Source information: This 50-nucleotide RNA from Catagonus wagneri belongs to the Rfam family "Whalefall-1 RNA". The family's consensus secondary structure is taken from published work. It scores 41 bits against the family's covariance model.
RNA sequence: GUGUUUCCCCAUGAGGGGGAAACAGAGUCCCACUGGCUCUGGGUGAGGAC
Numbered sequence: 001g002u003g004u005u006u007c008c009c010c011a012u013g014a015g016g017g018g019g020a021a022a023c024a025g026a027g028u029c030c031c032a033c034u035g036g037c038u039c040u041g042g043g044u045g046a047g048g049a050c
Stems, first nucleotide, its partner, number of pairs: 004022007025039005